Overview
Rfam assigns this 175-nucleotide RNA from Basidiobolus meristosporus to the family "small nucleolar RNA snR35". Rfam 15.1 lists 75 matches to the family in 66 species. Rfam classes the family as an H/ACA-box small nucleolar RNA. A reference for the family is Li et al. (2005), "Identification and functional analysis of 20 Box H/ACA small nucleolar RNAs (snoRNAs) from Schizosaccharomyces pombe", J Biol Chem. The match comes from Rfam's covariance-model search (51 bits). Pairs were carried over by alignment from the consensus structure, which was predicted with RNAalifold. Gene Ontology terms of the family: RNA processing and nucleolus. The family is grouped with related families in Rfam's "SNORA13 clan".
[Rfam]
RNA sequence: AUCGUGCGGCACCGCUUAUAAUCCGUGUUGCUCAUAAGCCUCUUAGCACCAUAGGCUUGUUACUACUCUGUAGUUUAAGAGCGUCAACAUAAGCGUAGACGAAAAGAACAUCUUAGCACCCUUUCGUGGCAUCAAUAUUAUUUCGAUGUGAUGAGGGUCGGGAGUUCAUACAUUC
Numbered sequence: 001a002u003c004g005u006g007c008g009g010c011a012c013c014g015c016u017u018a019u020a021a022u023c024c025g026u027g028u029u030g031c032u033c034a035u036a037a038g039c040c041u042c043u044u045a046g047c048a049c050c051a052u053a054g055g056c057u058u059g060u061u062a063c064u065a066c067u068c069u070g071u072a073g074u075u076u077a078a079g080a081g082c083g084u085c086a087a088c089a090u091a092a093g094c095g096u097a098g099a100c101g102a103a104a105a106g107a108a109c110a111u112c113u114u115a116g117c118a119c120c121c122u123u124u125c126g127u128g129g130c131a132u133c134a135a136u137a138u139u140a141u142u143u144c145g146a147u148g149u150g151a152u153g154a155g156g157g158u159c160g161g162g163a164g165u166u167c168a169u170a171c172a173u174u175c
Stems, first nucleotide, its partner, number of pairs: 013095006030082004106167004122156006129149002132146002